[Rfam]
RNA sequence: GGCUUCACCUCGGGGUGCCUUACUAUCAGGCUGAGAUCAGACCCGUUGAACCUGAUCAGGUAAUGCUGAUUAGGAAAGGUAAGUGAACCAAUU
Numbered sequence: 001g002g003c004u005u006c007a008c009c010u011c012g013g014g015g016u017g018c019c020u021u022a023c024u025a026u027c028a029g030g031c032u033g034a035g036a037u038c039a040g041a042c043c044c045g046u047u048g049a050a051c052c053u054g055a056u057c058a059g060g061u062a063a064u065g066c067u068g069a070u071u072a073g074g075a076a077a078g079g080u081a082a083g084u085g086a087a088c089c090a091a092u093u
Base pairs, nucleotide, nucleotide: 007080008079009078010077011045012044013043014042016039017031018030019029020028051074052073053072054071056069057068058067059066
Dot-bracket structure: ......((((((((.(((((.......)))).......)..)))).....((((.((((......)))).))))..)))).............